[Rfam]
RNA sequence: ACACUCCUGUGCUUUAUGGCUUUCUAUUCCUAUGUGAUGUUCUGCAGUAUCUCAUGUAGGGUUUAAAGCCAUUGGGUACAUAGUGG
Number, nucleotide and partner (000 for none) at each position: 001a000002c085003a084004c083005u082006c000007c000008u000009g079010u078011g077012c076013u075014u074015u000016a072017u071018g070019g069020c068021u067022u066023u065024c000025u000026a063027u000028u061029c060030c059031u058032a057033u056034g055035u054036g053037a052038u000039g000040u000041u000042c000043u000044g000045c000046a000047g000048u000049a000050u000051c000052u037053c036054a035055u034056g033057u032058a031059g030060g029061g028062u000063u026064u000065a023066a022067a021068g020069c019070c018071a017072u016073u000074g014075g013076g012077u011078a010079c009080a000081u000082a005083g004084u003085g002086g000
Overview:
mir-135 microRNA precursor family: an 86-nucleotide sequence from Chanos chanos. The source organism's lineage runs through Eukaryota, Chordata, Teleostomi, Ostariophysi and Chanos.